A member of the RNA family "M-box riboswitch aptamer (ykoK leader)" from Lysinibacillus sp. BF-4, 164 nucleotides long. A search with the family's covariance model found it, with a score of 149 bits. The pairing is the family consensus, mapped onto this sequence. Taxonomically the source falls in Lysinibacillus (Bacteria, Bacillati, Bacilli, Bacillaceae). About the family: M-box riboswitch, also know as ykoK leader is described as a metaloregulatory RNA that sense divalent metals and function as a genetic control element of genes related to divalent metal transport in bacteria. It was first reported upstream of the B.subtilis ykoK gene and genes with related functions in other bacteria. Its family is annotated with regulation of gene expression and response to magnesium ion in the Gene Ontology.
RNA sequence: GUAAACACUCGUUAGGUGAGGCUCCUAUAUGAAGACAUGCUGCUGCCCAGAAACGUCCAAAGACGCCAAUGGGUCAACAGAAAUCAUCGAGUUAAGGUGAUUUUUAAUGUAGCUGGAAAAAAUCCUAUGUCAUAUAGUGCUAAAACUCUACGAAGGGGGUUUAU
Dot-bracket structure: ....((.((((([.(((..(((..((((((((......(((((.(((((....((((....))))....))))).....((((..(((......])))..))))....))))).(((.....)))....)))))))).)))...)))..))...))).))....
Numbered sequence: 001g002u003a004a005a006c007a008c009u010c011g012u013u014a015g016g017u018g019a020g021g022c023u024c025c026u027a028u029a030u031g032a033a034g035a036c037a038u039g040c041u042g043c044u045g046c047c048c049a050g051a052a053a054c055g056u057c058c059a060a061a062g063a064c065g066c067c068a069a070u071g072g073g074u075c076a077a078c079a080g081a082a083a084u085c086a087u088c089g090a091g092u093u094a095a096g097g098u099g100a101u102u103u104u105u106a107a108u109g110u111a112g113c114u115g116g117a118a119a120a121a122a123u124c125c126u127a128u129g130u131c132a133u134a135u136a137g138u139g140c141u142a143a144a145a146c147u148c149u150a151c152g153a154a155g156g157g158g159g160u161u162u163a164u
Stems, first nucleotide, its partner, number of pairs: 005160002008157003011151002013095001015147003020141003025137008039113005045074005054065004080104004086098003115125003